[Rfam]
RNA sequence: CCUGCGGAGAGUACUAGAACUUGUAAGUAGUGUUUGAAAAUUCAGAUAUGAAAGCAUACUCAAUGAAACAGGAA
Numbered sequence: 001c002c003u004g005c006g007g008a009g010a011g012u013a014c015u016a017g018a019a020c021u022u023g024u025a026a027g028u029a030g031u032g033u034u035u036g037a038a039a040a041u042u043c044a045g046a047u048a049u050g051a052a053a054g055c056a057u058a059c060u061c062a063a064u065g066a067a068a069c070a071g072g073a074a
Base pairs, nucleotide, nucleotide: 001072002071003070004069009061010060011059012058013057022056023055024054030049031048032047035044036043
RNA: RAGATH-18 RNA